[Rfam]
RNA sequence: UGACCGACACUUAAUGUGUCUUAAACGGCCAAACGGACAGCCAGGUCAAAAGCCGA
Numbered sequence: 001u002g003a004c005c006g007a008c009a010c011u012u013a014a015u016g017u018g019u020c021u022u023a024a025a026c027g028g029c030c031a032a033a034c035g036g037a038c039a040g041c042c043a044g045g046u047c048a049a050a051a052g053c054c055g056a
Stems, first nucleotide, its partner, number of pairs: 001048005006020005

The family of this 56-nucleotide sequence is "Streptococcus sRNA SpF59 (ldcC RNA)". Rfam's curators put it in the seed alignment. Rfam classes the family as a small RNA. Pairs were carried over by alignment from the consensus structure, which was predicted with mfold. On this family, see Mann et al., PLoS Pathog 2012: "Control of virulence by small RNAs in Streptococcus pneumoniae".